[Rfam]
RNA sequence: AUUAAAUAUUAUCUCCGAGUUUAUUACUCCUAACAAAACUUAAGUUUUUAUGGAGGAUAAGCCUAUAGGGUAUAUCGGGAAACCUUUAUGCCUCCCAUUGUGGAAAGGAGUCGUACAUCCAUAACAU
Numbered sequence: 001a002u003u004a005a006a007u008a009u010u011a012u013c014u015c016c017g018a019g020u021u022u023a024u025u026a027c028u029c030c031u032a033a034c035a036a037a038a039c040u041u042a043a044g045u046u047u048u049u050a051u052g053g054a055g056g057a058u059a060a061g062c063c064u065a066u067a068g069g070g071u072a073u074a075u076c077g078g079g080a081a082a083c084c085u086u087u088a089u090g091c092c093u094c095c096c097a098u099u100g101u102g103g104a105a106a107g108g109a110g111u112c113g114u115a116c117a118u119c120c121a122u123a124a125c126a127u
Stems, first nucleotide, its partner, number of pairs: 003121001006118001013110004019062007027055004035048005068093007077084002094103002
This 127-nucleotide sequence from Alkaliphilus peptidifermentans belongs to the Rfam family "Molybdenum/Tungsten riboswitch aptamer (Moco RNA motif)". Lineage of the source: Bacteria > Bacillati > Bacillota > Peptostreptococcales > Alkaliphilus peptidifermentans. A reference for the family is Weinberg et al. (2007), "Identification of 22 candidate structured RNAs in bacteria using the CMfinder comparative genomics pipeline", Nucleic Acids Res.